[Rfam]
RNA sequence: AUCUGCCACUACUAACCGUGUCGUGUAGUAGUGAGUACGACACGGUUAGUAGUGGCAGAUG
Dot-bracket structure: (((((((((((((((((((((((((..........))))))))))))))))))))))))).

The record is a 61-nucleotide sequence from Pristionchus pacificus, which matches "mir-8338 microRNA precursor family" in Rfam. The organism belongs to Pristionchus, within Eukaryota. The family's consensus secondary structure was predicted with RNAalifold.